RNA sequence: UACCCGGGCCGUGACUGGCGCUGAGGUGGAGUACCACCGGGGAGCGGCCCGGGAGAGAUGCCGCGCGCCUGGGCGAGAGAG
Number, nucleotide and partner (000 for none) at each position: 001u000002a000003c053004c052005c051006g050007g049008g048009c047010c046011g045012u044013g000014a000015c041016u040017g069018g068019c067020g066021c065022u000023g000024a000025g000026g037027u036028g035029g034030a000031g000032u000033a000034c029035c028036a027037c026038c000039g000040g016041g015042g000043a000044g012045c011046g010047g009048c008049c007050c006051g005052g004053g003054a000055g000056a000057g000058a000059u075060g074061c073062c072063g000064c000065g021066c020067g019068c018069c017070u000071g000072g062073g061074c060075g059076a000077g000078a000079g000080a000081g000
Shown here is an 81-nucleotide RNA sequence from Streptomyces yokosukanensis, a member of the family "ZMP/ZTP riboswitch aptamer (pfl RNA motif)". The family's consensus secondary structure is taken from published work. The match comes from Rfam's covariance-model search (66 bits). The organism belongs to Streptomyces, within Bacteria.